[Rfam]
RNA sequence: AAAAUUUGAUGAUUGGGUCCAUCAGAUUGAAUCCAAACACUUUGCAAUGUGUAUGAUUUUUCU
Numbered sequence: 001a002a003a004a005u006u007u008g009a010u011g012a013u014u015g016g017g018u019c020c021a022u023c024a025g026a027u028u029g030a031a032u033c034c035a036a037a038c039a040c041u042u043u044g045c046a047a048u049g050u051g052u053a054u055g056a057u058u059u060u061u062c063u
Stems, first nucleotide, its partner, number of pairs: 001061004006035001008033003013025004039050002042047001